Annotation
Shown here is a 125-nucleotide sequence from Brassica oleracea, a member of the family "MIR9563 microRNA precursor family". The family has 2 seed sequences and 5,832 matches in Rfam 15.1. It scores 109 bits against the family's covariance model. Gene Ontology terms of the family: miRNA-mediated post-transcriptional gene silencing and RISC complex.
[Rfam]
RNA sequence: GGAAUAUAAGAACUCGUCUCUUAACUUUUAACUAAAAAAGAUAAGAACCGGUUCUUAAAUAAGAGUUUUAAGAGUCGAUUCUUAACUUUUUGAGUUAAAAGUUAAGAAACAGAUUCUUAUAUUCU
Number, nucleotide and partner (000 for none) at each position: 001g125002g124003a123004a122005u121006a120007u119008a118009a117010g116011a115012a114013c000014u112015c000016g110017u109018c000019u107020c106021u105022u104023a103024a102025c101026u100027u099028u098029u097030a096031a095032c094033u093034a000035a091036a090037a089038a088039a087040g000041a000042u084043a083044a082045g081046a080047a079048c000049c000050g000051g000052u000053u000054c000055u000056u000057a000058a000059a000060u000061a000062a000063g000064a000065g000066u000067u000068u000069u000070a000071a000072g000073a000074g000075u000076c000077g000078a000079u047080u046081c045082u044083u043084a042085a000086c000087u039088u038089u037090u036091u035092g000093a033094g032095u031096u030097a029098a028099a027100a026101g025102u024103u023104a022105a021106g020107a019108a000109a017110c016111a000112g014113a000114u012115u011116c010117u009118u008119a007120u006121a005122u004123u003124c002125u001